[Rfam]
RNA: c-di-AMP riboswitch aptamer (ydaO/yuaA leader)
RNA sequence: GCUGAUACUAAGCUUAGUUUCCGGCGCCGCAUGCGCUGGGAAGCGGGGGAACCAAGUAUUCCGGGGCGUAUCCUUCCGAUCGGAAGGUAGGGAACCAUCUAUCCCGAGCCCGUCAGCUAACCUCGUCAGCUGUGGAUGGGUCAAAC
Number, nucleotide and partner (000 for none) at each position: 001g000002c000003u000004g000005a000006u000007a000008c000009u000010a000011a131012g130013c129014u128015u000016a000017g000018u042019u041020u040021c039022c038023g037024g036025c035026g034027c033028c000029g000030c000031a000032u000033g027034c026035g025036c024037u023038g022039g021040g020041a019042a018043g126044c125045g124046g123047g122048g121049g000050a000051a000052c000053c063054a000055a000056g000057u000058a000059u000060u000061c000062c000063g053064g111065g110066g109067c000068g000069u000070a000071u000072c087073c086074u085075u084076c000077c000078g000079a000080u000081c000082g000083g000084a075085a074086g073087g072088u000089a000090g105091g104092g103093a102094a000095c000096c000097a000098u000099c000100u000101a000102u093103c092104c091105c090106g000107a000108g000109c066110c065111c064112g000113u000114c000115a000116g000117c000118u000119a000120a000121c048122c047123u046124c045125g044126u043127c000128a014129g013130c012131u011132g000133u000134g000135g000136a000137u000138g000139g000140g000141u000142c000143a000144a000145a000146c000